[Rfam]
RNA sequence: UUAACUUGAAUAUGCUUACCGUAGACAGUAGGUGCCCUAAGGCUUAAUUUCCUACCGAGGUGUUGUGAUAGAAACAAGAUGCUACUGGGUUCGCCCGUGCAACUAACGUUUAUCAAGCCUUCGUGAUUCUGCGGAGGCUUUUCUAAUGCCUGC
Numbered sequence: 001u002u003a004a005c006u007u008g009a010a011u012a013u014g015c016u017u018a019c020c021g022u023a024g025a026c027a028g029u030a031g032g033u034g035c036c037c038u039a040a041g042g043c044u045u046a047a048u049u050u051c052c053u054a055c056c057g058a059g060g061u062g063u064u065g066u067g068a069u070a071g072a073a074a075c076a077a078g079a080u081g082c083u084a085c086u087g088g089g090u091u092c093g094c095c096c097g098u099g100c101a102a103c104u105a106a107c108g109u110u111u112a113u114c115a116a117g118c119c120u121u122c123g124u125g126a127u128u129c130u131g132c133g134g135a136g137g138c139u140u141u142u143c144u145a146a147u148g149c150c151u152g153c
Stems, first nucleotide, its partner, number of pairs: 028055005034043003117138009
Rfam assigns this 153-nucleotide sequence from Paenibacillus wynnii to the family "Ribosomal protein L10 leader". The source organism's lineage runs through Bacteria, Bacillota, Bacilli, Caryophanales and Paenibacillus. Pairs were carried over by alignment from the consensus structure, which was predicted with CMfinder.